[Rfam]
RNA sequence: AUAAUUUCAGCAGCCUAACCGGCUGCUUUUUUAUUGCCUAAAAACGCUGAUUGAUCUAGUUAAACUUGCUCAACAAUUAA
Numbered sequence: 001a002u003a004a005u006u007u008c009a010g011c012a013g014c015c016u017a018a019c020c021g022g023c024u025g026c027u028u029u030u031u032u033a034u035u036g037c038c039u040a041a042a043a044a045c046g047c048u049g050a051u052u053g054a055u056c057u058a059g060u061u062a063a064a065c066u067u068g069c070u071c072a073a074c075a076a077u078u079a080a
Stems, first nucleotide, its partner, number of pairs: 009027007036047002039044001056068001058066003